[Rfam]
RNA: MIR1120/MIR1122 microRNA precursor family
Nucleotides: 087
Stems, first nucleotide, its partner, number of pairs: 003085003007081005013075005019069023
Number, partner (000 for none) and nucleotide at each position: 001000c002000u003085a004084c005083u006000c007081c008080c009079u010078c011077u012000u013075u014074a015073u016072c017071a018000a019069a020068a021067u022066a023065u024064a025063a026062g027061a028060c029059g030058u031057u032056u033055u034054u035053u036052g037051a038050c039049a040048c041047u042000a043000u044000g045000a046000c047041a048040g049039u050038g051037u052036c053035a054034g055033a056032a057031a058030a059029u060028g061027u062026c063025u064024u065023a066022u067021a068020u069019u070000u071017u072016g073015a074014u075013a076000u077011g078010g079009a080008g081007g082000g083005a084004g085003u086000a087000c